[Rfam]
RNA sequence: UAAACUGAACAGGGGAGCUUAUGAAUAGGCUGAGAGGAAGUUUGGAACUUCGACCCAUAUACCUGAUUUGGAUAAUGCCAACGUAGGAACGAAUGAGAGAUUUAUUU
Numbered sequence: 001u002a003a004a005c006u007g008a009a010c011a012g013g014g015g016a017g018c019u020u021a022u023g024a025a026u027a028g029g030c031u032g033a034g035a036g037g038a039a040g041u042u043u044g045g046a047a048c049u050u051c052g053a054c055c056c057a058u059a060u061a062c063c064u065g066a067u068u069u070g071g072a073u074a075a076u077g078c079c080a081a082c083g084u085a086g087g088a089a090c091g092a093a094u095g096a097g098a099g100a101u102u103u104a105u106u107u
Stems, first nucleotide, its partner, number of pairs: 006095002010091001012056003017030005037051005062087004068081004

TPP riboswitch aptamer (THI element): a 107-nucleotide sequence from Lachnospiraceae bacterium OF09-33XD.
The match comes from Rfam's covariance-model search (62 bits).
NCBI's taxonomy places the organism under Bacteria, Bacillati, Bacillota, Lachnospirales, Lachnospiraceae.
From the family's description: Vitamin B(1) in its active form thiamin pyrophosphate (TPP) is an essential coenzyme that is synthesised by coupling of pyrimidine and thiazole moieties in bacteria.